Shown here is a 46-nucleotide RNA from Peromyscus maniculatus, a member of the family "Histone 3' UTR stem-loop".
A search with the family's covariance model found it, with a score of 38 bits.
Rfam describes the family as follows. The mRNAs of metazoan histone genes lack a poly-A tail. 3' end processing occurs at a site between a highly conserved stem-loop (modelled by this family) and a purine rich region around 20 nts downstream (the histone downstream element, or HDE). The stem-loop is bound by a 31 kDa stem-loop binding protein (SLBP - also termed the histone hairpin binding protein, or HBP). Together with U7 snRNA binding of the HDE, SLBP binding nucleate s the formation of the processing complex. The histone 3' UTR stem-loop is also involved in nucleocytoplasmic transport of the mRNA, and in stability regulation and translation efficiency in the cytoplasm.
Lineage of the source: Eukaryota > Opisthokonta > Euarchontoglires > Glires > Peromyscus maniculatus.
The family's consensus secondary structure is taken from published work.
Its family is annotated with mRNA 3'-end processing by stem-loop binding and cleavage in the Gene Ontology.
Rfam classes the family as a cis-regulatory element.
RNA sequence: CCAAAGGCCCUUUUCAGGGCCACCCACCUUUUCACUUAAAAGGGUU
Numbered sequence: 001c002c003a004a005a006g007g008c009c010c011u012u013u014u015c016a017g018g019g020c021c022a023c024c025c026a027c028c029u030u031u032u033c034a035c036u037u038a039a040a041a042g043g044g045u046u
Stems, first nucleotide, its partner, number of pairs: 006021006